[Rfam]
Rfam assigns this 45-nucleotide RNA from [Clostridium] aminophilum to the family "PreQ1 (pre queuosine) riboswitch aptamer". About the family: This family is a bacterial riboswitch that binds to the metabolite preQ1, an intermediate in the biosynthesis of the modified nucleoside queuosine from GTP. One example of this riboswitch is located in the leader of the Bacillus subtilis ykvJKLM (queCDEF) operon which encodes four genes necessary for queuosine production. PreQ1 binding to the riboswitch aptamer is thought to induce premature transcription termination within the leader to down-regulate expression of these genes. It scores 46 bits against the family's covariance model. Rfam 15.1 lists 873 matches to the family in 692 species. For this family Rfam cites "A chemical probe based on the PreQ(1) metabolite enables transcriptome-wide mapping of binding sites" (Balaratnam et al., Nat Commun, 2021).
RNA sequence: GGAGCACUGGUUCGAAACCCUCCCAGUAUAAAAAACUAUGCAAUG
Number, nucleotide and partner (000 for none) at each position: 001g000002g000003a000004g000005c000006a027007c026008u025009g024010g023011u000012u000013c000014g000015a000016a037017a000018c000019c000020c000021u000022c000023c010024c009025a008026g007027u006028a000029u000030a000031a000032a000033a000034a000035a000036c000037u016038a000039u000040g000041c000042a000043a000044u000045g000